The record is a 95-nucleotide sequence from Lipotes vexillifer, which matches "mir-544 microRNA precursor family" in Rfam. The literature on the family includes a 2010 paper in Genes Dev by Chiang et al., "Mammalian microRNAs: experimental evaluation of novel and previously annotated genes".
RNA sequence: AUCACCUGGGAAUCCUGGUAAAAUGCCGAGUCUGAUUUAAUGAGUGGGGGGUGUCUGAGAUUCUGCCUUUCUACCAAGCUCCCAGGUGAUGCUGA
Numbered sequence: 001a002u003c004a005c006c007u008g009g010g011a012a013u014c015c016u017g018g019u020a021a022a023a024u025g026c027c028g029a030g031u032c033u034g035a036u037u038u039a040a041u042g043a044g045u046g047g048g049g050g051g052u053g054u055c056u057g058a059g060a061u062u063c064u065g066c067c068u069u070u071c072u073a074c075c076a077a078g079c080u081c082c083c084a085g086g087u088g089a090u091g092c093u094g095a
Stems, first nucleotide, its partner, number of pairs: 003088003009082003014078001016076005021070003025066002028063002031060003
Rfam links the family to the GO terms RISC complex and miRNA-mediated post-transcriptional gene silencing. The family's consensus secondary structure was predicted with RNAalifold. The organism belongs to Lipotes, within Eukaryota.